[Rfam]
RNA sequence: GGCCAGCUGGGGUUCCUGGGGAUGGGAUUUGCAGCUAAAUCACAAAUCACAUUGCCAGGGAUUUCCAACUGACC
Numbered sequence: 001g002g003c004c005a006g007c008u009g010g011g012g013u014u015c016c017u018g019g020g021g022a023u024g025g026g027a028u029u030u031g032c033a034g035c036u037a038a039a040u041c042a043c044a045a046a047u048c049a050c051a052u053u054g055c056c057a058g059g060g061a062u063u064u065c066c067a068a069c070u071g072a073c074c
Stems, first nucleotide, its partner, number of pairs: 001074002004071003010066002012062008021053004026048005

The record is a 74-nucleotide RNA from Dipodomys ordii, which matches "mir-23 microRNA precursor family" in Rfam. The literature on the family includes a 2002 paper in Curr Biol by Lagos-Quintana et al., "Identification of tissue-specific microRNAs from mouse". Taxonomically the source falls in Dipodomys (Eukaryota, Gnathostomata, Boreoeutheria, Euarchontoglires). The match comes from Rfam's covariance-model search (77 bits). Rfam links the family to the GO terms gene silencing by miRNA and RISC complex.